[Rfam]
RNA sequence: AUACUUAGUUGGCAGGGAAUAUACUGUGAUCAUGAAGGUGGUUUUCCCAGUGCAAGGCUUAUCCACUGCACUCCAGAUUUGCUGACCCCUGAGAUUUCCUCCAAUGUGUGAAACUCAACUGCAUAAUUUGUGGUAGUGGGGGACUGCAUUUGCACUCUUCCCCC
Numbered sequence: 001a002u003a004c005u006u007a008g009u010u011g012g013c014a015g016g017g018a019a020u021a022u023a024c025u026g027u028g029a030u031c032a033u034g035a036a037g038g039u040g041g042u043u044u045u046c047c048c049a050g051u052g053c054a055a056g057g058c059u060u061a062u063c064c065a066c067u068g069c070a071c072u073c074c075a076g077a078u079u080u081g082c083u084g085a086c087c088c089c090u091g092a093g094a095u096u097u098c099c100u101c102c103a104a105u106g107u108g109u110g111a112a113a114c115u116c117a118a119c120u121g122c123a124u125a126a127u128u129u130g131u132g133g134u135a136g137u138g139g140g141g142g143a144c145u146g147c148a149u150u151u152g153c154a155c156u157c158u159u160c161c162c163c164c
Stems, first nucleotide, its partner, number of pairs: 012122004016048002019045001021043001023042005049090002052087001056083003061078003093116002095113001096111002099108001138163006146155001